TPP riboswitch aptamer (THI element): a 111-nucleotide RNA from Paracoccus sp. S-4012.
Rfam's curators write: Vitamin B(1) in its active form thiamin pyrophosphate (TPP) is an essential coenzyme that is synthesised by coupling of pyrimidine and thiazole moieties in bacteria.
RNA sequence: CCCCUCGCCUCGGGGUGCCCUUGAGAAGGGCUGAGAUGCGCGUCCUGACCGCGCGAUCCCGCAGAACCUGAUCCGGCUCACACCGGCGGAGGGAAGGCGUCGCGCCCCUUU
Numbered sequence: 001c002c003c004c005u006c007g008c009c010u011c012g013g014g015g016u017g018c019c020c021u022u023g024a025g026a027a028g029g030g031c032u033g034a035g036a037u038g039c040g041c042g043u044c045c046u047g048a049c050c051g052c053g054c055g056a057u058c059c060c061g062c063a064g065a066a067c068c069u070g071a072u073c074c075g076g077c078u079c080a081c082a083c084c085g086g087c088g089g090a091g092g093g094a095a096g097g098c099g100u101c102g103c104g105c106c107c108c109u110u111u
Stems, first nucleotide, its partner, number of pairs: 006099005011061004016055001017031005038054005067092003073086004

It scores 80 bits against the family's covariance model.